[Rfam]
RNA sequence: CAGGCAAUUAAGCUGACCAGCCCUCCUCCCUGGGUGGGGGGGAAAGGCUGGUAUAACAUGGCUACAAACAGCAGCCUCCUGGGUAGAGUCUGCAGCCUGUUGCUUGUACAGGUUGCUUUAAGGAAGCCUGGAGAUAAUC
Numbered sequence: 001c002a003g004g005c006a007a008u009u010a011a012g013c014u015g016a017c018c019a020g021c022c023c024u025c026c027u028c029c030c031u032g033g034g035u036g037g038g039g040g041g042g043a044a045a046g047g048c049u050g051g052u053a054u055a056a057c058a059u060g061g062c063u064a065c066a067a068a069c070a071g072c073a074g075c076c077u078c079c080u081g082g083g084u085a086g087a088g089u090c091u092g093c094a095g096c097c098u099g100u101u102g103c104u105u106g107u108a109c110a111g112g113u114u115g116c117u118u119u120a121a122g123g124a125a126g127c128c129u130g131g132a133g134a135u136a137a138u139c
Base pairs, nucleotide, nucleotide: 002054016052017051018050019049022046024044082127084125093115094114095113096112097111098110
Shown here is a 139-nucleotide sequence from Erinaceus europaeus, a member of the family "Small nucleolar RNA SNORA70".
It is annotated as an H/ACA-box small nucleolar RNA.
Pairs were carried over by alignment from the consensus structure, which was predicted with PFOLD.
For this family Rfam cites "Pseudouridine in RNA: what, where, how, and why" (Charette and Gray, IUBMB Life, 2000).
A search with the family's covariance model found it, with a score of 85 bits.
The organism belongs to Erinaceus, within Eukaryota.